[Rfam]
RNA: MIR7502 microRNA precursor family
Organism: Gossypium hirsutum
RNA sequence: UGUUAGAAAUUUCAUUCAUUUUUGUUGUUAAAAAAUAGUUCUUGUACGUCAUAUAUGUCACACCACAUGUAAUGUCUAGUGAUUCCAUUAGCCGAGCCAGUUUUUAACAGUAAAAGUAGAUUAAAUUUUUAAUA
Numbered sequence: 001u002g003u004u005a006g007a008a009a010u011u012u013c014a015u016u017c018a019u020u021u022u023u024g025u026u027g028u029u030a031a032a033a034a035a036u037a038g039u040u041c042u043u044g045u046a047c048g049u050c051a052u053a054u055a056u057g058u059c060a061c062a063c064c065a066c067a068u069g070u071a072a073u074g075u076c077u078a079g080u081g082a083u084u085c086c087a088u089u090a091g092c093c094g095a096g097c098c099a100g101u102u103u104u105u106a107a108c109a110g111u112a113a114a115a116g117u118a119g120a121u122u123a124a125a126u127u128u129u130u131a132a133u134a
Stems, first nucleotide, its partner, number of pairs: 002133011014121003018117009028107006